[Rfam]
Nucleotides: 077
Base pairs, nucleotide, nucleotide: 001023002022003021004020005019006018036071037070038069039068040067042065043064045062046061047060048059049058050057
Number, partner (000 for none) and nucleotide at each position: 001023u002022g003021a004020g005019g006018a007000g008000a009000g010000a011000c012000u013000u014000a015000g016000a017000a018006u019005c020004c021003u022002c023001a024000u025000g026000g027000a028000u029000u030000g031000a032000g033000g034000u035000g036071u037070g038069a039068a040067u041000a042065g043064c044000g045062g046061c047060g048059u049058c050057u051000u052000u053000g054000g055000c056000c057050g058049g059048g060047c061046g062045c063000a064043g065042u066000g067040g068039u069038u070037c071036g072000u073000g074000a075000a076000u077000c
Notes
L13-Bacteroidia ribosomal protein leader: a 77-nucleotide RNA sequence. Rfam's curators put it in the seed alignment. For this family Rfam cites "Discovery of 20 novel ribosomal leader candidates in bacteria and archaea" (Eckert and Weinberg, BMC Microbiol, 2020). The base pairs follow the family's consensus structure, which is taken from published work.